[Rfam]
RNA sequence: UAACAGUCGCAUAACUGGCGGAAGUAGUGGAAAACCACUAGGGAGUGCGACUGCAACAACGCCGACCGCCUGGGCAUCCUAU
Number, nucleotide and partner (000 for none) at each position: 001u000002a000003a000004c053005a052006g051007u050008c049009g048010c047011a046012u045013a000014a000015c042016u041017g070018g069019c068020g067021g066022a000023a000024g000025u000026a000027g038028u037029g036030g035031a000032a000033a000034a000035c030036c029037a028038c027039u000040a000041g016042g015043g000044a000045g012046u011047g010048c009049g008050a007051c006052u005053g004054c000055a000056a000057c000058a000059a077060c000061g075062c074063c073064g000065a000066c021067c020068g019069c018070c017071u000072g000073g063074g062075c061076a000077u059078c000079c000080u000081a000082u000

Record summary:
Shown here is an 82-nucleotide RNA sequence from Sulfoacidibacillus thermotolerans, a member of the family "ZMP/ZTP riboswitch aptamer (pfl RNA motif)". The organism belongs to Sulfoacidibacillus, within Bacteria. The family's consensus secondary structure is taken from published work. Its family is annotated with regulation of purine nucleotide biosynthetic process and one-carbon metabolic process in the Gene Ontology.